[Rfam]
RNA sequence: GUAAAUGCUGGGAAGAGGAAUAGUAGAGUGCAGGAACCAUCAGAGAGCUGCCGUGUGGUGCGAGGCAGUUGGGGAGCGCGUUUGAACUCGCCUUGGAGCAGCCUGCUGAAGGGAAGGCCGACAGAUUUGAUUUUUAUAUGAAUAUAAUCGGAGCCCUCCUGAGUAGGCAGAGCCGGAAGCCGCCCGUUAUGCGGUGAGGAGAAAAUGCCGUUUGAGUCUGCGCCUGGCCGUAUGAUUCAGGACAGCAGUCAGGCAGUUUCCCCCAUAAGAGCAUGCCCACGGCAUGAAAUAGAGUGGUACCGCGCGAGAGGAUAAGCCUUGCGUCUCUAUG
Dot-bracket structure: ......((......((((.......((((((.....(((.......((((((...........))))))))).....)))))).......))))...))..((((((..........................................................))))).).(((.......))).....................................................................................((((((...))))))....((((.......(((((((.........)))))))))))...
Numbered sequence: 001g002u003a004a005a006u007g008c009u010g011g012g013a014a015g016a017g018g019a020a021u022a023g024u025a026g027a028g029u030g031c032a033g034g035a036a037c038c039a040u041c042a043g044a045g046a047g048c049u050g051c052c053g054u055g056u057g058g059u060g061c062g063a064g065g066c067a068g069u070u071g072g073g074g075a076g077c078g079c080g081u082u083u084g085a086a087c088u089c090g091c092c093u094u095g096g097a098g099c100a101g102c103c104u105g106c107u108g109a110a111g112g113g114a115a116g117g118c119c120g121a122c123a124g125a126u127u128u129g130a131u132u133u134u135u136a137u138a139u140g141a142a143u144a145u146a147a148u149c150g151g152a153g154c155c156c157u158c159c160u161g162a163g164u165a166g167g168c169a170g171a172g173c174c175g176g177a178a179g180c181c182g183c184c185c186g187u188u189a190u191g192c193g194g195u196g197a198g199g200a201g202a203a204a205a206u207g208c209c210g211u212u213u214g215a216g217u218c219u220g221c222g223c224c225u226g227g228c229c230g231u232a233u234g235a236u237u238c239a240g241g242a243c244a245g246c247a248g249u250c251a252g253g254c255a256g257u258u259u260c261c262c263c264c265a266u267a268a269g270a271g272c273a274u275g276c277c278c279a280c281g282g283c284a285u286g287a288a289a290u291a292g293a294g295u296g297g298u299a300c301c302g303c304g305c306g307a308g309a310g311g312a313u314a315a316g317c318c319u320u321g322c323g324u325c326u327c328u329a330u331g
Stems, first nucleotide, its partner, number of pairs: 007099002015094004026083006037072003047069006102172001103170005174186003272286006291328004302324007
A member of the RNA family "T-box leader" from Clostridium sp. CAG:299, 331 nucleotides long. The family's RNA type in Rfam is cis-regulatory leader. On this family, see Grundy et al., J Bacteriol 1994: "Interaction between the acceptor end of tRNA and the T box stimulates antitermination in the Bacillus subtilis tyrS gene: a new role for the discriminator base". The family has 48 seed sequences and 19,395 matches in Rfam 15.1. Rfam links the family to the GO term tRNA binding.